[Rfam]
The record is a 74-nucleotide sequence from Oppiella nova, which matches "mir-2 microRNA precursor family" in Rfam. The family's consensus secondary structure was predicted with PFOLD. NCBI's taxonomy places the organism under Eukaryota, Protostomia, Arachnida, Oppiidae, Oppiella.

RNA sequence: GUAGACAUCAAAGCGGCUGAUGAAAUGUACAGCCAGUGUCUCAUCCAUAUCACAGCCACCUUUGAUGAUCUCCG
Dot-bracket structure: .....((((((((.(((((.(((..(((..................)))))))))))..)))))))).......